Rfam assigns this 144-nucleotide sequence from Populus tomentosa to the family "MIR480 microRNA precursor family". Lineage of the source: Eukaryota > Streptophytina > Tracheophyta > Magnoliopsida > Populus. A search with the family's covariance model found it, with a score of 106 bits.
RNA sequence: UAAUAUGUAUGGAGCAGAUCCUCAUUUAACUAUAACAGGCCCGCAUUUGACUACUCAUAAUCACACAUUAUCGUAAGCUCAGCUAAAUCAUUGACAUUGAAAAACAGAUGAUAGCUACUAGGUGAACAAUGACUUUUUUAAAUU
Numbered sequence: 001u002a003a004u005a006u007g008u009a010u011g012g013a014g015c016a017g018a019u020c021c022u023c024a025u026u027u028a029a030c031u032a033u034a035a036c037a038g039g040c041c042c043g044c045a046u047u048u049g050a051c052u053a054c055u056c057a058u059a060a061u062c063a064c065a066c067a068u069u070a071u072c073g074u075a076a077g078c079u080c081a082g083c084u085a086a087a088u089c090a091u092u093g094a095c096a097u098u099g100a101a102a103a104a105c106a107g108a109u110g111a112u113a114g115c116u117a118c119u120a121g122g123u124g125a126a127c128a129a130u131g132a133c134u135u136u137u138u139u140a141a142a143u144u
Base pairs, nucleotide, nucleotide: 005143006142008140009139012136014134018130019129023122025120027117028116030114031113